The record is a 102-nucleotide RNA from Ramlibacter tataouinensis, which matches "SAM-I/IV (S-adenosyl methionine) riboswitch aptamer" in Rfam.
A search with the family's covariance model found it, with a score of 46 bits.
Its family is annotated with S-adenosylmethionine metabolic process and regulation of gene expression in the Gene Ontology.
RNA sequence: AAACUGUAUGAAGAGUCGGGCAUCGUCCCGAGCCAACCUGCCUACGGGGCAAGGUGGAUCGCGAAAGCGGAUGCGGCCAACAAGGCAACCAAGCCGGUCAUG
Numbered sequence: 001a002a003a004c005u006g007u008a009u010g011a012a013g014a015g016u017c018g019g020g021c022a023u024c025g026u027c028c029c030g031a032g033c034c035a036a037c038c039u040g041c042c043u044a045c046g047g048g049g050c051a052a053g054g055u056g057g058a059u060c061g062c063g064a065a066a067g068c069g070g071a072u073g074c075g076g077c078c079a080a081c082a083a084g085g086c087a088a089c090c091a092a093g094c095c096g097g098u099c100a101u102g
Base pairs, nucleotide, nucleotide: 006074007073008072009071017030018029019028020027033057034056037054038053039052040050041049042048044098045097047095076086077085078084
Dot-bracket structure: .....((((.......((((......))))..((..((((((.[[.[))).))).)).............)))).(((.....)))........].]]....
Its Rfam clan is "SAM clan".